Shown here is an 86-nucleotide sequence from Senna tora, a member of the family "mir-156 microRNA precursor family". The source organism's lineage runs through Eukaryota, Spermatophyta, fabids, Fabales and Senna. About the family: This family represents the plant microRNA (miRNA) precursor mir-156. A search with the family's covariance model found it, with a score of 69 bits. The literature on the family includes a 2001 paper in Cell by Ambros, "microRNAs: tiny regulators with great potential". Gene Ontology terms of the family: miRNA-mediated post-transcriptional gene silencing and RISC complex.
RNA sequence: CUGACAGAAGAGAGUGAGCACACGCUGCUAGCAAUUGUAUGAAGGCCAUACAUCUGCGGGUGCGUGCUCACUACUCUUUCUGUCAG
Numbered sequence: 001c002u003g004a005c006a007g008a009a010g011a012g013a014g015u016g017a018g019c020a021c022a023c024g025c026u027g028c029u030a031g032c033a034a035u036u037g038u039a040u041g042a043a044g045g046c047c048a049u050a051c052a053u054c055u056g057c058g059g060g061u062g063c064g065u066g067c068u069c070a071c072u073a074c075u076c077u078u079u080c081u082g083u084c085a086g
Stems, first nucleotide, its partner, number of pairs: 001086009010076003013072009023062003